[Rfam]
RNA sequence: UCAGUGUUCCGGGGACGGUGAGAUUCCGUACCGGCGGUGAUAGCCCGCGACCCGGUCAGCGCAGCAGAACCCUGCUGAGCCGGCCGGCUGACUCGGUGAGAUUCCGAGGCCGACAGUGAAAGUCUGGAUGGGAGGAACAGGCG
Numbered sequence: 001u002c003a004g005u006g007u008u009c010c011g012g013g014g015a016c017g018g019u020g021a022g023a024u025u026c027c028g029u030a031c032c033g034g035c036g037g038u039g040a041u042a043g044c045c046c047g048c049g050a051c052c053c054g055g056u057c058a059g060c061g062c063a064g065c066a067g068a069a070c071c072c073u074g075c076u077g078a079g080c081c082g083g084c085c086g087g088c089u090g091a092c093u094c095g096g097u098g099a100g101a102u103u104c105c106g107a108g109g110c111c112g113a114c115a116g117u118g119a120a121a122g123u124c125u126g127g128a129u130g131g132g133a134g135g136a137a138c139a140g141g142c143g
Base pairs, nucleotide, nucleotide: 005139006138007137008136009135010134016028017027018026030123031122032112033111034048035047036046037045043110044109052087053086054085055084056083057082092108093107094106095105096104114126115125116124